[Rfam]
RNA sequence: AGUGACUUUCCAAGUGUCACACAGCGAGUGGCACAAUCAUAAUCCAAUUUGGGUCUUGCCCAUAUGUGACAUUGCUAGUGAUUACUCAAGGAAAGUGAUG
Numbered sequence: 001a002g003u004g005a006c007u008u009u010c011c012a013a014g015u016g017u018c019a020c021a022c023a024g025c026g027a028g029u030g031g032c033a034c035a036a037u038c039a040u041a042a043u044c045c046a047a048u049u050u051g052g053g054u055c056u057u058g059c060c061c062a063u064a065u066g067u068g069a070c071a072u073u074g075c076u077a078g079u080g081a082u083u084a085c086u087c088a089a090g091g092a093a094a095g096u097g098a099u100g
Base pairs, nucleotide, nucleotide: 002099003098005096006095007094008093009092010091011090013086014085015084016083017081018080019079020078022074023073024070027067028065029064030060031059032058033057037052038051039050041048
The family of this 100-nucleotide RNA from Propithecus coquereli is "mir-23c microRNA precursor family".
A search with the family's covariance model found it, with a score of 85 bits.
NCBI's taxonomy places the organism under Eukaryota, Gnathostomata, Teleostomi, Sarcopterygii, Propithecus.